[Rfam]
Shown here is an 86-nucleotide RNA from Yushanluvirus satich, a member of the family "Selenocysteine transfer RNA".
The family's consensus secondary structure is taken from published work.
Taxonomically the source falls in Yushanluvirus satich (Viruses, Caudoviricetes, Pantevenvirales, Yushanluvirus).
RNA sequence: GGAGGGGCAAUCCGAUUGGUGACGGAACCUGUCUUGAAAACAGUUGAGGUGUUAAAGCCCUUGGGGGUUCGACUCCCCCUCCCUCC
Numbered sequence: 001g002g003a004g005g006g007g008c009a010a011u012c013c014g015a016u017u018g019g020u021g022a023c024g025g026a027a028c029c030u031g032u033c034u035u036g037a038a039a040a041c042a043g044u045u046g047a048g049g050u051g052u053u054a055a056a057g058c059c060c061u062u063g064g065g066g067g068u069u070c071g072a073c074u075c076c077c078c079c080u081c082c083c084u085c086c
Base pairs, nucleotide, nucleotide: 001086002085003084004083005082006081007080011026012025013024014023016021027045029043030042031041032040047061048060049059064078065077066076067075